[Rfam]
RNA: MIR7502 microRNA precursor family
RNA sequence: UAUUAAAAAUUUAUCCAGUUGUACUGUUAAAAAUUAACAUGGCUAAUGAAAUAACCAAACAAUGAUAUGUGCCGUGCCAUAUGCACCUCAUGUUGACGUACAAAUAUCAAUUUUCAACAGUAGAAAUGAAUGAAUUUUUUUGUA
Numbered sequence: 001u002a003u004u005a006a007a008a009a010u011u012u013a014u015c016c017a018g019u020u021g022u023a024c025u026g027u028u029a030a031a032a033a034u035u036a037a038c039a040u041g042g043c044u045a046a047u048g049a050a051a052u053a054a055c056c057a058a059a060c061a062a063u064g065a066u067a068u069g070u071g072c073c074g075u076g077c078c079a080u081a082u083g084c085a086c087c088u089c090a091u092g093u094u095g096a097c098g099u100a101c102a103a104a105u106a107u108c109a110a111u112u113u114u115c116a117a118c119a120g121u122a123g124a125a126a127u128g129a130a131u132g133a134a135u136u137u138u139u140u141u142g143u144a
Stems, first nucleotide, its partner, number of pairs: 002143002005140003008136007017127001019125002022122004027117002030114003